[Rfam]
RNA sequence: CUGGUCUGGGGAAAGGCUCCCGUGUGCUGGCCCGCAGUGCGGGUGCGGCCUUGUACCGGGCAGCACAACCUUGACCUACAGCAAGCGCCAGGGAGCAGUGUCUCCCAGCGCAUCUGCAGUAACAGGUGAGACCAUCCUAGCAGCAGAUUGAUGAUCAAAAUGAUACUGCACACAGAA
Numbered sequence: 001c002u003g004g005u006c007u008g009g010g011g012a013a014a015g016g017c018u019c020c021c022g023u024g025u026g027c028u029g030g031c032c033c034g035c036a037g038u039g040c041g042g043g044u045g046c047g048g049c050c051u052u053g054u055a056c057c058g059g060g061c062a063g064c065a066c067a068a069c070c071u072u073g074a075c076c077u078a079c080a081g082c083a084a085g086c087g088c089c090a091g092g093g094a095g096c097a098g099u100g101u102c103u104c105c106c107a108g109c110g111c112a113u114c115u116g117c118a119g120u121a122a123c124a125g126g127u128g129a130g131a132c133c134a135u136c137c138u139a140g141c142a143g144c145a146g147a148u149u150g151a152u153g154a155u156c157a158a159a160a161u162g163a164u165a166c167u168g169c170a171c172a173c174a175g176a177a
Stems, first nucleotide, its partner, number of pairs: 003076004008071003016064003019060004024056002026049004030044003088110001091106005113172001115170007123162002130156002133153004139148001141146001
Dot-bracket structure: ..((((.(((.....(((((((.(((((((((.........))).)))).....)))))).)))....))).))))...........(..(((((......)))))...)..(.(((((((.((.....((.((((..(.(....).).)))).))....)).))))))).).....